RNA sequence: CCAACCGAAACAUGGUCGAAGCACUGACCUUCUUUUUCCGAGGUAGCCCGCGGCGGUAGAGCUACCGAUUUGGAUUGACCCCUUCCGAGAGAGUCGGCCAUCCUGUCAAACUCCAAACCCGCAGGCGCUGUAGACGAAAGGGCGAGUCCGGUGUGCAGGGGGCGUAGCCUGUGCACCAUGGAGGGGGAACAACCAGAAGGGCCGGGUUAACGGUCCCAAAUUGUAGAUUAAAGCUGCGAUUCGGAAGGUGGUCUCAAGCCCGUAAACAGCGGGAGUGAGGCUUUUAGAAGCAGCUACCCCCCUCUUAAGAAAAGGCGUAACAGCUUACGGCCGACGGGUUUGGGAGAGCGGCGCAAAAUGAUCGGGGGCUCAAAUCUAACCCCGAGACCUGGCCUGCCCGUCACAGGGGGCAACCGGGCGCCUAGGGUUGGCGUUUGUUCGGAUGAGCCGGGCGGAGAGCUCCGUGUGGACCGCUUCAGGAAACGACAAU
Numbered sequence: 001c002c003a004a005c006c007g008a009a010a011c012a013u014g015g016u017c018g019a020a021g022c023a024c025u026g027a028c029c030u031u032c033u034u035u036u037u038c039c040g041a042g043g044u045a046g047c048c049c050g051c052g053g054c055g056g057u058a059g060a061g062c063u064a065c066c067g068a069u070u071u072g073g074a075u076u077g078a079c080c081c082c083u084u085c086c087g088a089g090a091g092a093g094u095c096g097g098c099c100a101u102c103c104u105g106u107c108a109a110a111c112u113c114c115a116a117a118c119c120c121g122c123a124g125g126c127g128c129u130g131u132a133g134a135c136g137a138a139a140g141g142g143c144g145a146g147u148c149c150g151g152u153g154u155g156c157a158g159g160g161g162g163c164g165u166a167g168c169c170u171g172u173g174c175a176c177c178a179u180g181g182a183g184g185g186g187g188a189a190c191a192a193c194c195a196g197a198a199g200g201g202c203c204g205g206g207u208u209a210a211c212g213g214u215c216c217c218a219a220a221u222u223g224u225a226g227a228u229u230a231a232a233g234c235u236g237c238g239a240u241u242c243g244g245a246a247g248g249u250g251g252u253c254u255c256a257a258g259c260c261c262g263u264a265a266a267c268a269g270c271g272g273g274a275g276u277g278a279g280g281c282u283u284u285u286a287g288a289a290g291c292a293g294c295u296a297c298c299c300c301c302c303u304c305u306u307a308a309g310a311a312a313a314g315g316c317g318u319a320a321c322a323g324c325u326u327a328c329g330g331c332c333g334a335c336g337g338g339u340u341u342g343g344g345a346g347a348g349c350g351g352c353g354c355a356a357a358a359u360g361a362u363c364g365g366g367g368g369c370u371c372a373a374a375u376c377u378a379a380c381c382c383c384g385a386g387a388c389c390u391g392g393c394c395u396g397c398c399c400g401u402c403a404c405a406g407g408g409g410g411c412a413a414c415c416g417g418g419c420g421c422c423u424a425g426g427g428u429u430g431g432c433g434u435u436u437g438u439u440c441g442g443a444u445g446a447g448c449c450g451g452g453c454g455g456a457g458a459g460c461u462c463c464g465u466g467u468g469g470a471c472c473g474c475u476u477c478a479g480g481a482a483a484c485g486a487c488a489a490u
Stems, first nucleotide, its partner, number of pairs: 001431006011026002013023001015022002028146001029141001034140005042129003046126003050122004059114001060112002067107003072103004077098001081096001084093001086091001150177009185194002201393007212382002224378005248352002252345009269331002271328001273304003279295003305310001311326001315324002394416001395412005432485001434482003437476001440473003447467002449464004
RNA: Archaeal large subunit ribosomal RNA, nucleotides 978 to 1467